[Rfam]
RNA: mir-762 microRNA precursor family
Organism: Chrysochloris asiatica
RNA sequence: GCCCGGCUUCGGGUCUCAGCCCGCACAGUCCGGCCGGCCAUGCUGGCGGGGCUGGGGCCGAGGCCAGACCCGUGG
Dot-bracket structure: ....((.((..(.(..(.((((...((((((.((((((...)))))).)))))))))).).).).)).)).....